The family of this 123-nucleotide sequence from Morella rubra is "Plastid-psbA-1 3UTR RNA". Its Rfam clan is "Plastid-psbA 3UTR RNA clan". The source organism's lineage runs through Eukaryota, Viridiplantae, Streptophytina, Euphyllophyta and Morella.
RNA sequence: UCGAAGCUCCAUCUACAAAUGGAUAAAACGUAAGACUUCGAUUUUAGUAUAUACGAGUUAUUGAAAAUAAAGGAGCAAUAAUCAACUUUCUUGUUCUCUCAAGAGGAUUGGUAUUGCUCCUUU
Numbered sequence: 001u002c003g004a005a006g007c008u009c010c011a012u013c014u015a016c017a018a019a020u021g022g023a024u025a026a027a028a029c030g031u032a033a034g035a036c037u038u039c040g041a042u043u044u045u046a047g048u049a050u051a052u053a054c055g056a057g058u059u060a061u062u063g064a065a066a067a068u069a070a071a072g073g074a075g076c077a078a079u080a081a082u083c084a085a086c087u088u089u090c091u092u093g094u095u096c097u098c099u100c101a102a103g104a105g106g107a108u109u110g111g112u113a114u115u116g117c118u119c120c121u122u123u
Stems, first nucleotide, its partner, number of pairs: 008023005069123012084109002088105005